[Rfam]
RNA sequence: AAAAAUGUCUGCUUUUUGUGAGUGACACACGUAGGAUAGCUCAUUUGCUCUGCAUGUAGAACCGAUAUCAAAAAAUUUUUGAAGCAUACUGUUUUGGUUUUUAGGCAGCUGAUGAUCAGUGACCUCUGUGUCCCU
Dot-bracket structure: ........((.(.(.(((....))).)((.(((((.(((.....))).))))).)).((((..............)))).).))...................(((.((.((.(.((...)).))).)))))...
RNA: U11 spliceosomal RNA